[Rfam]
RNA sequence: GGUUUACAAUCAACAUUCAUUGCUGUCGGUGGAUUUUUGGCUGUGAAAGUCACUGAACAAUGAGUGUAACUGUGCC
Numbered sequence: 001g002g003u004u005u006a007c008a009a010u011c012a013a014c015a016u017u018c019a020u021u022g023c024u025g026u027c028g029g030u031g032g033a034u035u036u037u038u039g040g041c042u043g044u045g046a047a048a049g050u051c052a053c054u055g056a057a058c059a060a061u062g063a064g065u066g067u068a069a070c071u072g073u074g075c076c
Base pairs, nucleotide, nucleotide: 005074006073007072008071014066015065016064017063018062019061020060021059022058026056027055028054029053030052031051033050034049035048036047